RNA: pemK RNA
RNA sequence: ACAAUGAUACUUCCGUCCAGUCCCAGACACACGCAAGGAGGGCGGCUGCGAGAGAUCCUCGCGGGGGUGAGAGUCCCAUGA
Dot-bracket structure: ...........(((((((.....................))))))(((.(((.....))).)))(((.......))))...